[Rfam]
RNA sequence: AAAUGCAAUUUGGUAUCUGACUUUUUUUUUGCCUUUUUUGUGAUUCUGUGUCUCUAAACAUGGCAAAAAAUGAGGAGGAACGAAACUUUGCGACACUGGCUGCUCAUAAUGAGCCUCUAAGUUACUAUAUACUACCUGUUUAUAUUA
Numbered sequence: 001a002a003a004u005g006c007a008a009u010u011u012g013g014u015a016u017c018u019g020a021c022u023u024u025u026u027u028u029u030u031g032c033c034u035u036u037u038u039u040g041u042g043a044u045u046c047u048g049u050g051u052c053u054c055u056a057a058a059c060a061u062g063g064c065a066a067a068a069a070a071u072g073a074g075g076a077g078g079a080a081c082g083a084a085a086c087u088u089u090g091c092g093a094c095a096c097u098g099g100c101u102g103c104u105c106a107u108a109a110u111g112a113g114c115c116u117c118u119a120a121g122u123u124a125c126u127a128u129a130u131a132c133u134a135c136c137u138g139u140u141u142a143u144a145u146u147a
Stems, first nucleotide, its partner, number of pairs: 004065003008061002019052003023048001028043002031041001079140004095122003098118002102114003